[Rfam]
Rfam assigns this 97-nucleotide RNA from Pongo abelii to the family "Y RNA". The match comes from Rfam's covariance-model search (43 bits). Lineage of the source: Eukaryota > Sarcopterygii > Amniota > Boreoeutheria > Pongo. A reference for the family is Mosig et al. (2007), "Evolution of the vertebrate Y RNA cluster", Theory Biosci. The family's consensus secondary structure is taken from published work. Rfam classes the family as a non-coding RNA gene.

RNA sequence: ACUUGGUCAUAUGGAAGUGGGUUAUCAGAACUUAUUAACAUUAGUGUCACUGAAGUUGGUAUACAACCUCCUCGCUGCUAAAUUUGACUGGCUUUUU
Numbered sequence: 001a002c003u004u005g006g007u008c009a010u011a012u013g014g015a016a017g018u019g020g021g022u023u024a025u026c027a028g029a030a031c032u033u034a035u036u037a038a039c040a041u042u043a044g045u046g047u048c049a050c051u052g053a054a055g056u057u058g059g060u061a062u063a064c065a066a067c068c069u070c071c072u073c074g075c076u077g078c079u080a081a082a083u084u085u086g087a088c089u090g091g092c093u094u095u096u097u
Stems, first nucleotide, its partner, number of pairs: 001093001003091006011084001016076006033061003037057002